Record summary:
This 108-nucleotide RNA from Hahella sp. CCB-MM4 belongs to the Rfam family "SAM-I/IV (S-adenosyl methionine) riboswitch aptamer". The base pairs follow the family's consensus structure, which is taken from published work. Rfam links the family to the GO terms S-adenosylmethionine metabolic process and regulation of gene expression. The literature on the family includes a 2008 paper in RNA by Weinberg et al., "The aptamer core of SAM-IV riboswitches mimics the ligand-binding site of SAM-I riboswitches".
RNA sequence: UUCGUGCAUCAAGAGAAGGACUGACGGUCCUCGCCAACCUGCCGACCUGGGCAAGGUGGUGCCAAAACCAACGGAUAUAAGUUGUUUAUGUCAAACCUGUUAAUGACC
Numbered sequence: 001u002u003c004g005u006g007c008a009u010c011a012a013g014a015g016a017a018g019g020a021c022u023g024a025c026g027g028u029c030c031u032c033g034c035c036a037a038c039c040u041g042c043c044g045a046c047c048u049g050g051g052c053a054a055g056g057u058g059g060u061g062c063c064a065a066a067a068c069c070a071a072c073g074g075a076u077a078u079a080a081g082u083u084g085u086u087u088a089u090g091u092c093a094a095a096c097c098u099g100u101u102a103a104u105g106a107c108c
Base pairs, nucleotide, nucleotide: 006078008076009075010074015032017031018030019029020028021027033060034059035058038056039055040054041052042051043050048102049101081092083090